[Rfam]
RNA sequence: AAGGCUAUACUUUCAGGGAUCAUUUCUAUAGUUCUUGACUUGAGAAAUGUGUUUCUAAAGUGUUUGGUCUCGCUAACCACGAUGAUGAGUCGUGAUAUUCCUUUCUGAGCGUGAAGCUGAUAGAGAGUAAUGAGUUACUUCAUAUGUUCUCUGUCAUUGAUGAUUGUUCUUUGCUUCUUCAUGGAGCAUUGAGGAAGAGAAUAUGAUCGGAGUGGU
Numbered sequence: 001a002a003g004g005c006u007a008u009a010c011u012u013u014c015a016g017g018g019a020u021c022a023u024u025u026c027u028a029u030a031g032u033u034c035u036u037g038a039c040u041u042g043a044g045a046a047a048u049g050u051g052u053u054u055c056u057a058a059a060g061u062g063u064u065u066g067g068u069c070u071c072g073c074u075a076a077c078c079a080c081g082a083u084g085a086u087g088a089g090u091c092g093u094g095a096u097a098u099u100c101c102u103u104u105c106u107g108a109g110c111g112u113g114a115a116g117c118u119g120a121u122a123g124a125g126a127g128u129a130a131u132g133a134g135u136u137a138c139u140u141c142a143u144a145u146g147u148u149c150u151c152u153g154u155c156a157u158u159g160a161u162g163a164u165u166g167u168u169c170u171u172u173g174c175u176u177c178u179u180c181a182u183g184g185a186g187c188a189u190u191g192a193g194g195a196a197g198a199g200a201a202u203a204u205g206a207u208c209g210g211a212g213u214g215g216u
Stems, first nucleotide, its partner, number of pairs: 001041003005037001009032003015027004051064001055062001076216005095204006102197005109167003119155004125149004130143004172188006
Small nucleolar RNA U3: a 216-nucleotide sequence from Sander lucioperca.
Rfam links the family to the GO terms RNA processing and nucleolus.
Clan: U3 clan.
Small nucleolar RNAs (snoRNAs) are involved in the processing and modification of rRNA in the nucleolus. There are two main classes of snoRNAs: the box C/D class, and the box H/ACA class.
For this family Rfam cites "The uRNA database" (Zwieb, Nucleic Acids Res, 1997).